[Rfam]
RNA: nhaA-I RNA
RNA sequence: GGGUGUCGACGAAGCGUAAGCGCAGUCGACAGGAUCGGGUUGGUCGGGCCGCCAGCC
Numbered sequence: 001g002g003g004u005g006u007c008g009a010c011g012a013a014g015c016g017u018a019a020g021c022g023c024a025g026u027c028g029a030c031a032g033g034a035u036c037g038g039g040u041u042g043g044u045c046g047g048g049c050c051g052c053c054a055g056c057c
Stems, first nucleotide, its partner, number of pairs: 005030006038057007